[Rfam]
Description:
Rfam assigns this 125-nucleotide RNA sequence from Polymorphum gilvum to the family "Alphaproteobacterial ar14".
RNA sequence: GCUUUCCUGAGGUGCAGGUUCCUCCUCCCACUCUGCACCUCGGAUCCGACCGGUCCUCCUCCUCCCGGACCGGUCUUCUGUAAGAAGCGCUCGCCGAAUCCUCCUCCCAUCGGCGAGCGCUUUUU
Numbered sequence: 001g002c003u004u005u006c007c008u009g010a011g012g013u014g015c016a017g018g019u020u021c022c023u024c025c026u027c028c029c030a031c032u033c034u035g036c037a038c039c040u041c042g043g044a045u046c047c048g049a050c051c052g053g054u055c056c057u058c059c060u061c062c063u064c065c066c067g068g069a070c071c072g073g074u075c076u077u078c079u080g081u082a083a084g085a086a087g088c089g090c091u092c093g094c095c096g097a098a099u100c101c102u103c104c105u106c107c108c109a110u111c112g113g114c115g116a117g118c119g120c121u122u123u124u125u
Base pairs, nucleotide, nucleotide: 007043008042009041011039012038013037014036015035016034017033048075049074050073051072052071053070054069055068087120088119089118090117091116092115093114094113095112096111097110
Source information
Rfam links the family to the GO term biological process involved in symbiotic interaction. The pairing is the family consensus, mapped onto this sequence. The family's RNA type in Rfam is small RNA.